[Rfam]
RNA: Actinobacteria sRNA Ms_IGR-7
RNA sequence: UCGGGUGCUCCUGUUUUCUGGUCGAUCGAACUGUCGCAAGUCCAAUCGUCCCAGGUCACAGGGGCAUUCGUGUGUUACGACCCGGCUUGGUCACCCAAUACAUCGGCGGAUCGAG
Dot-bracket structure: .((((((((((((.(..((((.((((.(.(((......))).).))))..))))...))))))))))))).........................(.((.(......).)).)..